[Rfam]
RNA: Clostridiales-2 RNA
RNA sequence: ACAAUGUGGAAUGUGCAGAGGGAGACCCCCUCGCCGUCCUAAGAAGGGUGCUCAAUCUGCAAAGCAGGCGCCGAAGGGAAU
Dot-bracket structure: ..............((.(((((.....))))))).....................((((.....)))).............
Numbered sequence: 001a002c003a004a005u006g007u008g009g010a011a012u013g014u015g016c017a018g019a020g021g022g023a024g025a026c027c028c029c030c031u032c033g034c035c036g037u038c039c040u041a042a043g044a045a046g047g048g049u050g051c052u053c054a055a056u057c058u059g060c061a062a063a064g065c066a067g068g069c070g071c072c073g074a075a076g077g078g079a080a081u
Stems, first nucleotide, its partner, number of pairs: 015034002018032005056068004